The family of this 114-nucleotide sequence from Atractosteus spatula is "Potassium channel RNA editing signal". It is annotated as a cis-regulatory element. A search with the family's covariance model found it, with a score of 100 bits. This family represents a group of sequences related to the human potassium channel Kv1.1 hairpin element which directs the efficient modification of an adenosine to inosine by an adenosine deaminase acting on RNA (ADAR). The ADAR modification causes an isoleucine/valine recoding event which lies in the ion-conducting pore of the potassium channel. It is thought that this editing event targets the process of fast inactivation and allows a more rapid recovery from inactivation at negative potentials.
RNA sequence: GUCGGCUAUGGAGACAUGCACCCUGUUACCAUAGGUGGUAAAAUCGUCGGGUCCUUGUGUGCAAUCGCAGGCGUGUUAACCAUAGCCUUGCCUGUCCCGGUCAUCGUGUCUAAU
Numbered sequence: 001g002u003c004g005g006c007u008a009u010g011g012a013g014a015c016a017u018g019c020a021c022c023c024u025g026u027u028a029c030c031a032u033a034g035g036u037g038g039u040a041a042a043a044u045c046g047u048c049g050g051g052u053c054c055u056u057g058u059g060u061g062c063a064a065u066c067g068c069a070g071g072c073g074u075g076u077u078a079a080c081c082a083u084a085g086c087c088u089u090g091c092c093u094g095u096c097c098c099g100g101u102c103a104u105c106g107u108g109u110c111u112a113a114u
Stems, first nucleotide, its partner, number of pairs: 001114002004111002007108005013102003018097001020095002037077004050062001